[Rfam]
Shown here is an 85-nucleotide RNA sequence from Ursus americanus, a member of the family "mir-2114 microRNA precursor family".
Its family is annotated with RISC complex and miRNA-mediated post-transcriptional gene silencing in the Gene Ontology.
Taxonomically the source falls in Ursus (Eukaryota, Eutheria, Laurasiatheria, Caniformia).
It scores 96 bits against the family's covariance model.

RNA sequence: GGCCUCCAUGCUUCUAGUCCCUUCCUUGAGGCGAUCGGGUAAAUCAUAUGACGCGCCUCAAGCAAGGGACUUCUAGCUGGUGGCU
Numbered sequence: 001g002g003c004c005u006c007c008a009u010g011c012u013u014c015u016a017g018u019c020c021c022u023u024c025c026u027u028g029a030g031g032c033g034a035u036c037g038g039g040u041a042a043a044u045c046a047u048a049u050g051a052c053g054c055g056c057c058u059c060a061a062g063c064a065a066g067g068g069a070c071u072u073c074u075a076g077c078u079g080g081u082g083g084c085u
Base pairs, nucleotide, nucleotide: 002084003083004082006080007079008078010077011076012075016071017070018069019068020067021066022065023064025062026061027060028059029058031057033056036053037052